[Rfam]
RNA: Group II catalytic intron D1-D4-5
RNA sequence: UAGAACUGAUAUUCCGACAGGUGGAAUGAUGGGGUAACGCCCUGAAACGCCUGCCCUAAGACUGCGCCGGGCAUGGUGCAAGCGCAAAGACGCACUGUGUCCGAGAGCGCGCGGAAGUCGGCGGAAGUCUGCCCUAACAGGUCAAGCCGAGGAAAGCGCCCCAGCGGUGGGGUGUGCAGAUGAUACGCCGGGGGUCUAUAAA
Numbered sequence: 001u002a003g004a005a006c007u008g009a010u011a012u013u014c015c016g017a018c019a020g021g022u023g024g025a026a027u028g029a030u031g032g033g034g035u036a037a038c039g040c041c042c043u044g045a046a047a048c049g050c051c052u053g054c055c056c057u058a059a060g061a062c063u064g065c066g067c068c069g070g071g072c073a074u075g076g077u078g079c080a081a082g083c084g085c086a087a088a089g090a091c092g093c094a095c096u097g098u099g100u101c102c103g104a105g106a107g108c109g110c111g112c113g114g115a116a117g118u119c120g121g122c123g124g125a126a127g128u129c130u131g132c133c134c135u136a137a138c139a140g141g142u143c144a145a146g147c148c149g150a151g152g153a154a155a156g157c158g159c160c161c162c163a164g165c166g167g168u169g170g171g172g173u174g175u176g177c178a179g180a181u182g183a184u185a186c187g188c189c190g191g192g193g194g195u196c197u198a199u200a201a202a
Stems, first nucleotide, its partner, number of pairs: 018053006031043004054194004064112004068103012119190005127181006133152003140148002156175007